This 153-nucleotide RNA from Thalassovita taeanensis belongs to the Rfam family "FMN riboswitch aptamer (RFN element)".

RNA sequence: CUCCGUUCUCAGGGCGGGGUGAAACUCCCCACCGGCGGUAAGGGGCCUCGGCCCCAAGCCCGCGAGCGCCUCGGCGGCCUUCCGCCCCGAGGGUCAGCAGAUCUGGUGCAACUCCAGAGCCGACGGUCAUAGUCCGGAUGAAAGAGAACGGCA
Numbered sequence: 001c002u003c004c005g006u007u008c009u010c011a012g013g014g015c016g017g018g019g020u021g022a023a024a025c026u027c028c029c030c031a032c033c034g035g036c037g038g039u040a041a042g043g044g045g046c047c048u049c050g051g052c053c054c055c056a057a058g059c060c061c062g063c064g065a066g067c068g069c070c071u072c073g074g075c076g077g078c079c080u081u082c083c084g085c086c087c088c089g090a091g092g093g094u095c096a097g098c099a100g101a102u103c104u105g106g107u108g109c110a111a112c113u114c115c116a117g118a119g120c121c122g123a124c125g126g127u128c129a130u131a132g133u134c135c136g137g138a139u140g141a142a143a144g145a146g147a148a149c150g151g152c153a
Stems, first nucleotide, its partner, number of pairs: 003151008017029003031133002033122002035063004058120002066098002102118005124136003
Dot-bracket structure: ..((((((((......(((.......))).[[((((((...................[[))))..((.............................))...(((((.......)))))]])).(((.....]]))).......))))))))..
The family's consensus secondary structure is taken from published work. The source organism's lineage runs through Bacteria, Pseudomonadati, Pseudomonadota, Alphaproteobacteria and Thalassovita. The family has 146 seed sequences and 6,230 matches in Rfam 15.1. The match comes from Rfam's covariance-model search (114 bits).